[Rfam]
Description: Group II catalytic intron D1-D4-2: a 117-nucleotide sequence from Butyrivibrio sp. Su6. About the family: Group II introns are found in rRNA, tRNA and mRNA of organelles in fungi, plants and protists, and also in mRNA in bacteria. Pairs were carried over by alignment from the consensus structure. Lineage of the source: Bacteria > Bacillati > Bacillota > Clostridia > Butyrivibrio.
RNA sequence: GAAGGUAGGUCCUUCGACAGGAAUUGAGCAGGCAAAUCUGUCAAAUCACUCUAGUGCUGCUGUAGUCAAGCCUAUGGUAGUAAGCGAUUAGAGAAAAGGCUACAAGUAGUAGUCAGA
Numbered sequence: 001g002a003a004g005g006u007a008g009g010u011c012c013u014u015c016g017a018c019a020g021g022a023a024u025u026g027a028g029c030a031g032g033c034a035a036a037u038c039u040g041u042c043a044a045a046u047c048a049c050u051c052u053a054g055u056g057c058u059g060c061u062g063u064a065g066u067c068a069a070g071c072c073u074a075u076g077g078u079a080g081u082a083a084g085c086g087a088u089u090a091g092a093g094a095a096a097a098g099g100c101u102a103c104a105a106g107u108a109g110u111a112g113u114c115a116g117a
Stems, first nucleotide, its partner, number of pairs: 001015005016042006024035003046117002049093002052090004056081002059078003063074003098114006
Its family is annotated with Group II intron splicing in the Gene Ontology. For this family Rfam cites "Control of branch-site choice by a group II intron" (Chu et al., EMBO J, 2001).